[Rfam]
Notes:
A member of the RNA family "Acido-Lenti-1 RNA" from Fuerstiella marisgermanici, 44 nucleotides long. It is annotated as a small RNA. NCBI's taxonomy places the organism under Bacteria, Pseudomonadati, Planctomycetales, Planctomycetaceae, Fuerstiella.
RNA sequence: CCUUGGGCUUACGCCCAAGGCUAAGUGCUGCCGCCCGCCGGGCG
Number, nucleotide and partner (000 for none) at each position: 001c020002c019003u018004u017005g016006g015007g014008c013009u000010u000011a000012c000013g008014c007015c006016c005017a004018a003019g002020g001021c000022u000023a000024a000025g000026u000027g000028c000029u000030g000031c000032c000033g043034c042035c041036c040037g000038c000039c000040g036041g035042g034043c033044g000